RNA sequence: GAGGAGUGGGACAAGUUAGUGCAGAACCCAUUUCUUGCCUUUUACCAGAGAUGGCCGUGAUUUGCCCACAAAACUCCUCUCAUAAAUCUUUGGAAACACAAUGACACAGCGGUCAUUU
Numbered sequence: 001g002a003g004g005a006g007u008g009g010g011a012c013a014a015g016u017u018a019g020u021g022c023a024g025a026a027c028c029c030a031u032u033u034c035u036u037g038c039c040u041u042u043u044a045c046c047a048g049a050g051a052u053g054g055c056c057g058u059g060a061u062u063u064g065c066c067c068a069c070a071a072a073a074c075u076c077c078u079c080u081c082a083u084a085a086a087u088c089u090u091u092g093g094a095a096a097c098a099c100a101a102u103g104a105c106a107c108a109g110c111g112g113u114c115a116u117u118u
Stems, first nucleotide, its partner, number of pairs: 003077004009067002012064007028054008094118001100117006

U5 spliceosomal RNA: a 118-nucleotide RNA from Penicillium crustosum. Rfam describes the family as follows. U5 RNA is a component of both types of known spliceosome. The precise function of this molecule is unknown, though it is known that the 5' loop is required for splice site selection and p220 binding, and that both the 3' stem-loop and the Sm site are important for Sm protein binding and cap methylation. Rfam classes the family as a spliceosomal small nuclear RNA. The source organism's lineage runs through Eukaryota, Opisthokonta, Pezizomycotina, Aspergillaceae and Penicillium. On this family, see Hinz et al., J Biol Chem 1996: "Domain analysis of human U5 RNA. Cap trimethylation, protein binding, and spliceosome assembly".